RNA sequence: CCCGUUGUACGACCAACGGUAGCCUAUGAAGGCAUGCGUCGUGGGUAACCGCGAGGUGUGAAGCCCUUCUGACAAUGUAGCCCCCGAUUUUUUUGCGGGUAUGCGGCGGUCGCGAGACGGCUGUAUAGAAACUCCGAGCAGCGUUGGGGUAAGGAGC
Number, nucleotide and partner (000 for none) at each position: 001c000002c019003c018004g017005u016006u015007g014008u000009a000010c000011g000012a000013c000014c007015a006016a005017c004018g003019g002020u000021a000022g000023c000024c000025u000026a000027u000028g069029a068030a067031g066032g065033c060034a059035u058036g057037c056038g000039u054040c053041g052042u051043g050044g049045g000046u000047a000048a000049c044050c043051g042052c041053g040054a039055g000056g037057u036058g035059u034060g033061a000062a000063g000064c000065c032066c031067u030068u029069c028070u000071g000072a000073c000074a000075a000076u000077g000078u000079a000080g000081c000082c099083c098084c097085c000086g000087a094088u000089u000090u000091u000092u000093u000094u087095g000096c000097g084098g083099g082100u127101a126102u125103g124104c000105g000106g000107c000108g000109g000110u117111c116112g000113c000114g000115a000116g111117a110118c000119g000120g000121c000122u000123g000124u103125a102126u101127a100128g000129a000130a000131a150132c149133u148134c147135c146136g145137a000138g000139c000140a000141g000142c000143g000144u000145u136146g135147g134148g133149g132150u131151a000152a000153g000154g000155a000156g000157c000

Annotation:
Rfam assigns this 157-nucleotide RNA sequence from Caballeronia telluris to the family "Group II catalytic intron D1-D4-7". Rfam's curators write: Group II introns are found in rRNA, tRNA and mRNA of organelles in fungi, plants and protists, and also in mRNA in bacteria. The base pairs follow the family's consensus structure.